[Rfam]
RNA sequence: UGUCUCCUCUAUUCUCCUCCUAGGAAAUAGAUUCAGCCCGCUUCUAACGAAGCGGGUUUUUUUUU
Numbered sequence: 001u002g003u004c005u006c007c008u009c010u011a012u013u014c015u016c017c018u019c020c021u022a023g024g025a026a027a028u029a030g031a032u033u034c035a036g037c038c039c040g041c042u043u044c045u046a047a048c049g050a051a052g053c054g055g056g057u058u059u060u061u062u063u064u065u
Stems, first nucleotide, its partner, number of pairs: 008031005013025002035058008
RNA: Betaproteobacteria toxic small RNA